[Rfam]
RNA sequence: CGGGGACCGCCGCCUAAUCGCCCUCGCGGCGAGCCGGGGAACCAUAUUUCCUCGGGGUGAAUCCGCCUUUUGAAGGUGGUAGGGAUUGCUUCCGUCCCGAACCCGUCAGCUAACUCGGUCGGCGGCCGACGGAAGGAUUC
Numbered sequence: 001c002g003g004g005g006a007c008c009g010c011c012g013c014c015u016a017a018u019c020g021c022c023c024u025c026g027c028g029g030c031g032a033g034c035c036g037g038g039g040a041a042c043c044a045u046a047u048u049u050c051c052u053c054g055g056g057g058u059g060a061a062u063c064c065g066c067c068u069u070u071u072g073a074a075g076g077u078g079g080u081a082g083g084g085a086u087u088g089c090u091u092c093c094g095u096c097c098c099g100a101a102c103c104c105g106u107c108a109g110c111u112a113a114c115u116c117g118g119u120c121g122g123c124g125g126c127c128g129a130c131g132g133a134a135g136g137a138u139u140c
Stems, first nucleotide, its partner, number of pairs: 011124004018032003033119006043054001055104003063079004082098004

Rfam assigns this 140-nucleotide sequence from Actinoplanes missouriensis to the family "c-di-AMP riboswitch aptamer (ydaO/yuaA leader)". It scores 84 bits against the family's covariance model. The organism belongs to Actinoplanes missouriensis, within Bacteria.